[Rfam]
RNA sequence: CCGUGCAGCCGGGGAGGUAGCGGCGCCCUGAACCUGCAAUCCGCUAUAGCAGGGGUUAUGGUUUGUGUCGGGUAUAUCUUGUAGGGCUGCCCUUUAUAAGUGAUGUUGACGUCCGGGUCUUAUGCAACGGGGUCCUGUGAACCGUGUCAGGUCAGGAAUGGAGCAGCACUAAGCAGAUCAUCUCGUGUGACAUGAGGGUGCCUGGACCGAGUUAACUGUAAAGGUAACGCUUAUGGGAUAUUCACAAAGCAAACCGCACGG
Numbered sequence: 001c002c003g004u005g006c007a008g009c010c011g012g013g014g015a016g017g018u019a020g021c022g023g024c025g026c027c028c029u030g031a032a033c034c035u036g037c038a039a040u041c042c043g044c045u046a047u048a049g050c051a052g053g054g055g056u057u058a059u060g061g062u063u064u065g066u067g068u069c070g071g072g073u074a075u076a077u078c079u080u081g082u083a084g085g086g087c088u089g090c091c092c093u094u095u096a097u098a099a100g101u102g103a104u105g106u107u108g109a110c111g112u113c114c115g116g117g118u119c120u121u122a123u124g125c126a127a128c129g130g131g132g133u134c135c136u137g138u139g140a141a142c143c144g145u146g147u148c149a150g151g152u153c154a155g156g157a158a159u160g161g162a163g164c165a166g167c168a169c170u171a172a173g174c175a176g177a178u179c180a181u182c183u184c185g186u187g188u189g190a191c192a193u194g195a196g197g198g199u200g201c202c203u204g205g206a207c208c209g210a211g212u213u214a215a216c217u218g219u220a221a222a223g224g225u226a227a228c229g230c231u232u233a234u235g236g237g238a239u240a241u242u243c244a245c246a247a248a249g250c251a252a253a254c255c256g257c258a259c260g261g
Stems, first nucleotide, its partner, number of pairs: 001261006008056003011029004016024001018022001033053005061254006070245001072243001074241001076239010088226002092223006100216002102213003111207008119196006125187002128185005135176004144169004152161003

The family of this 261-nucleotide RNA sequence from Eubacterium sp. CAG:161 is "Bacterial large signal recognition particle RNA". Rfam's curators write: The signal recognition particle (SRP) is a universally conserved ribonucleoprotein involved in the co-translational targeting of proteins to membranes. By type it is a non-coding RNA gene. The base pairs follow the family's consensus structure, which is taken from published work. Clan: SRP clan. The match comes from Rfam's covariance-model search (184 bits).